MIR390 microRNA precursor family: a 114-nucleotide RNA sequence from Carex littledalei. The organism belongs to Carex subgen. Euthyceras, within Eukaryota. Rfam links the family to the GO terms RISC complex and miRNA-mediated post-transcriptional gene silencing.
Nucleotides: 114
Base pairs, nucleotide, nucleotide: 010105016099017098018097019096020095021094022093023092024091026089027088028087029086030085031084032083033082034081
Number, partner (000 for none) and nucleotide at each position: 001000c002000g003000g004000a005000u006000g007000a008000g009000u010105c011000c012000a013000u014000a015000a016099a017098g018097c019096u020095c021094a022093g023092g024091a025000g026089g027088g028087a029086u030085a031084g032083c033082g034081c035000c036000a037000u038000g039000g040000u041000g042000g043000u044000g045000g046000g047000u048000a049000g050000u051000g052000a053000u054000g055000u056000u057000g058000a059000a060000u061000u062000a063000u064000g065000u066000a067000c068000g069000u070000c071000u072000u073000g074000c075000c076000u077000a078000u079000u080000u081034g082033c083032g084031c085030u086029a087028u088027c089026u090000a091024u092023c093022c094021u095020g096019a097018g098017u099016u100000u101000c102000a103000u104000g105010g106000u107000u108000c109000c110000u111000u112000c113000c114000u